RNA: Small nucleolar RNA SNORD109A
RNA sequence: GUAUCAGUGAUGAGAACAAUCGUCUGAGGAUAAUGAGUGACUCAUGCCAAUAGGAAUAUGGGGUCC
Numbered sequence: 001g002u003a004u005c006a007g008u009g010a011u012g013a014g015a016a017c018a019a020u021c022g023u024c025u026g027a028g029g030a031u032a033a034u035g036a037g038u039g040a041c042u043c044a045u046g047c048c049a050a051u052a053g054g055a056a057u058a059u060g061g062g063g064u065c066c
Stems, first nucleotide, its partner, number of pairs: 001066001003064003